The family of this 78-nucleotide RNA sequence from Crocodylus porosus is "Mammalian CPEB3 ribozyme". The base pairs follow the family's consensus structure, which is taken from published work. A search with the family's covariance model found it, with a score of 73 bits. Rfam links the family to the GO term RNA nuclease activity. Rfam's curators write: The mammalian CPEB3 ribozyme is a self cleaving RNA located in the second intron of the CPEB3 gene which belongs to a family of genes regulating messenger RNA polyadenylation. This ribozyme is highly conserved and found only in mammals. The CPEB3 ribozyme is structurally and biochemically related to the human hepatitis delta virus (HDV) ribozyme and the HDV ribozyme is proposed to have arisen from the human transcriptome. There is currently only one other known self cleaving ribozyme in mammals, the CoTC motif.
RNA sequence: ACUGAAAAGAUGGGGGCCACAGAAGAAGCGUUCAUGUCACGGCCCCUGUCAGAUUCCAACAAACCUGCAAAUCCUGCU
Numbered sequence: 001a002c003u004g005a006a007a008a009g010a011u012g013g014g015g016g017c018c019a020c021a022g023a024a025g026a027a028g029c030g031u032u033c034a035u036g037u038c039a040c041g042g043c044c045c046c047u048g049u050c051a052g053a054u055u056c057c058a059a060c061a062a063a064c065c066u067g068c069a070a071a072u073c074c075u076g077c078u
Stems, first nucleotide, its partner, number of pairs: 013046006021078002024075002027072001028040001030038001050067003054063002
Dot-bracket structure: ............((((((..[[.[[.[(.(.......).)))))))...(((.((......)).)))....].]].]]